A member of the RNA family "Plastid-psbA-1 3UTR RNA" from Toona ciliata, 109 nucleotides long. The base pairs follow the family's consensus structure, which was predicted with LocARNA. Taxonomically the source falls in Toona (Eukaryota, Streptophytina, Pentapetalae, Meliaceae). The sequence is in the family's curated seed alignment. Rfam's curators write: Plastid psbA-1 is a non-coding RNA (ncRNA) present in plastids.

RNA sequence: UUGAAGCCCCAUCUACAAAUGGAUAAUUCUGUCUUAGUGGAGACGAGUUUUUGAAAAUAACGGAGAAAUACCGACUCUCUUGCAAGAGAGUCGGUAUUUCUCCGUUAUU
Numbered sequence: 001u002u003g004a005a006g007c008c009c010c011a012u013c014u015a016c017a018a019a020u021g022g023a024u025a026a027u028u029c030u031g032u033c034u035u036a037g038u039g040g041a042g043a044c045g046a047g048u049u050u051u052u053g054a055a056a057a058u059a060a061c062g063g064a065g066a067a068a069u070a071c072c073g074a075c076u077c078u079c080u081u082g083c084a085a086g087a088g089a090g091u092c093g094g095u096a097u098u099u100c101u102c103c104g105u106u107a108u109u
Stems, first nucleotide, its partner, number of pairs: 009022004059106013073092003077088004